[Rfam]
RNA sequence: UCUGAAAGCAGGUAAGCCACUGACUAAUGCACAUUGCGCCAAUACCCAAUUCCACUGUGCGUGUGACAGCGGCUAACCAGCUUUUGGGGGGUCGCUCC
Numbered sequence: 001u002c003u004g005a006a007a008g009c010a011g012g013u014a015a016g017c018c019a020c021u022g023a024c025u026a027a028u029g030c031a032c033a034u035u036g037c038g039c040c041a042a043u044a045c046c047c048a049a050u051u052c053c054a055c056u057g058u059g060c061g062u063g064u065g066a067c068a069g070c071g072g073c074u075a076a077c078c079a080g081c082u083u084u085u086g087g088g089g090g091g092u093c094g095c096u097c098c
Stems, first nucleotide, its partner, number of pairs: 005084005011078002015074004020069003024065001025063002028061006035054002
Dot-bracket structure: ....(((((.((..((((.(((.(((.((((((.((................)).)))))))).).))).))))..)).)))))..............
Shown here is a 98-nucleotide RNA from Clupea harengus, a member of the family "mir-210 microRNA precursor family". The family's consensus secondary structure was predicted with WAR.